[Rfam]
RNA: mir-87 microRNA precursor family
Organism: Diploscapter pachys
RNA sequence: UCGCGUACCGCCUGAAUCUUUCGUCUCAACCUACCAUAUUUGUGCGCGCAGGUGAGCAAAGUUUUCAGGUGUUACGGCGA
Dot-bracket structure: ...((((.(((((((..((((...((((.(((.................))))))).))))...))))))).))))....